[Rfam]
RNA sequence: UGCCUUUAUGUGUUGCCCUUUCAUUGCUACUUUAGUGAUUGGGGUGUCAAAUAAGGCAUACAGUGACACUUGUGGUUGUCUGUGAAAAGAGCUUCAAGUGACUCAUUUACACAAACACCUGCAAGGACACAC
Numbered sequence: 001u002g003c004c005u006u007u008a009u010g011u012g013u014u015g016c017c018c019u020u021u022c023a024u025u026g027c028u029a030c031u032u033u034a035g036u037g038a039u040u041g042g043g044g045u046g047u048c049a050a051a052u053a054a055g056g057c058a059u060a061c062a063g064u065g066a067c068a069c070u071u072g073u074g075g076u077u078g079u080c081u082g083u084g085a086a087a088a089g090a091g092c093u094u095c096a097a098g099u100g101a102c103u104c105a106u107u108u109a110c111a112c113a114a115a116c117a118c119c120u121g122c123a124a125g126g127a128c129a130c131a132c
Stems, first nucleotide, its partner, number of pairs: 002057005011049002014046004018041001021038005069125004074119003081113004086107002091102001
Description: This 132-nucleotide sequence from Lates calcarifer belongs to the Rfam family "Small nucleolar RNA SNORA13". About the family: ACA13 is a member of the H/ACA class of snoRNA that guide the sites of modification of uridines to pseudouridines. The family has 50 seed sequences and 1,034 matches in Rfam 15.1. The family's RNA type in Rfam is H/ACA-box small nucleolar RNA. The match comes from Rfam's covariance-model search (63 bits). The family's consensus secondary structure was predicted with CMfinder. Clan: SNORA13 clan.